[Rfam]
RNA sequence: AGUCCGAUUAUGGUAAUCGCCAGUGAGCCAUAUAGUCAAACUCGGUGCGUUGUAGUAAUGCAGGGUGCUAAGCGAGUGGGUAAUGUAACUUCGAAAGAGGUGCUAACAAUCAUGCAGACCGUAACAUAA
Numbered sequence: 001a002g003u004c005c006g007a008u009u010a011u012g013g014u015a016a017u018c019g020c021c022a023g024u025g026a027g028c029c030a031u032a033u034a035g036u037c038a039a040a041c042u043c044g045g046u047g048c049g050u051u052g053u054a055g056u057a058a059u060g061c062a063g064g065g066u067g068c069u070a071a072g073c074g075a076g077u078g079g080g081u082a083a084u085g086u087a088a089c090u091u092c093g094a095a096a097g098a099g100g101u102g103c104u105a106a107c108a109a110u111c112a113u114g115c116a117g118a119c120c121g122u123a124a125c126a127u128a129a
Stems, first nucleotide, its partner, number of pairs: 009032005040077004044069005053060002085103002088101004106122002
RNA: Group II catalytic intron D1-D4-4